[Rfam]
Nucleotides: 119
Stems, first nucleotide, its partner, number of pairs: 001083004009041001011040006024033002042070003047066003051061002086108006092101003
Number, partner (000 for none) and nucleotide at each position: 001083a002082a003081u004080c005000a006000c007000g008000a009041g010000u011040u012039c013038c014037c015036g016035c017000c018000a019000c020000u021000c022000a023000c024033g025032a026000c027000c028000c029000u030000g031000g032025u033024c034000g035016g036015c037014g038013g039012g040011a041009c042070c043069g044068c045000a046000a047066c048065c049064c050000u051061c052060u053000u054000c055000g056000u057000c058000a059000u060052a061051g062000c063000g064049g065048g066047g067000u068044g069043c070042g071000c072000c073000a074000g075000g076000u077000g078000a079000c080004g081003a082002u083001u084000c085000g086108a087107c088106g089105c090104c091103g092101c093100c094099u095000a096000a097000c098000c099094g100093g101092g102000c103091c104090g105089g106088c107087g108086u109000a110000a111000g112000u113000a114000u115000g116000g117000c118000g119000u